[Rfam]
RNA sequence: GCGGCAUGAUGAUGAUCUAAGUUAAAAGUUGCGAGAUCUAUCUUUGAGCGAUUAAAAUCCUCCUACUCAUUCUGA
Numbered sequence: 001g002c003g004g005c006a007u008g009a010u011g012a013u014g015a016u017c018u019a020a021g022u023u024a025a026a027a028g029u030u031g032c033g034a035g036a037u038c039u040a041u042c043u044u045u046g047a048g049c050g051a052u053u054a055a056a057a058u059c060c061u062c063c064u065a066c067u068c069a070u071u072c073u074g075a
Stems, first nucleotide, its partner, number of pairs: 006070004029051002033045001
The record is a 75-nucleotide RNA sequence from Apostasia shenzhenica, which matches "Small nucleolar RNA Z105" in Rfam. It scores 51 bits against the family's covariance model. Rfam classes the family as a C/D-box small nucleolar RNA. The literature on the family includes a 2003 paper in Nucleic Acids Res by Chen et al., "The high diversity of snoRNAs in plants: identification and comparative study of 120 snoRNA genes from Oryza sativa". Taxonomically the source falls in Apostasia (Eukaryota, Streptophyta, Embryophyta, Magnoliopsida). The family has 11 seed sequences and 621 matches in Rfam 15.1.